The record is an 89-nucleotide RNA from Canis lupus, which matches "mir-8799 microRNA precursor family" in Rfam. Clan: mir-8791 microRNA precursor clan. Rfam links the family to the GO terms RISC complex and miRNA-mediated post-transcriptional gene silencing. The family's consensus secondary structure was predicted with RNAalifold. The match comes from Rfam's covariance-model search (74 bits).
RNA sequence: GGGGUGGCCGGAUCCUGGGCUGUGUCCCCGGCGCCCUGUGCUCCCGGGCCUGUGCUGUUGGAUUCGCGCUCACGGCUGCGCAGCGCCCC
Numbered sequence: 001g002g003g004g005u006g007g008c009c010g011g012a013u014c015c016u017g018g019g020c021u022g023u024g025u026c027c028c029c030g031g032c033g034c035c036c037u038g039u040g041c042u043c044c045c046g047g048g049c050c051u052g053u054g055c056u057g058u059u060g061g062a063u064u065c066g067c068g069c070u071c072a073c074g075g076c077u078g079c080g081c082a083g084c085g086c087c088c089c
Stems, first nucleotide, its partner, number of pairs: 001087002004084001007081002009078003014075002018071002021068004025062002028060001029057006038050001040049003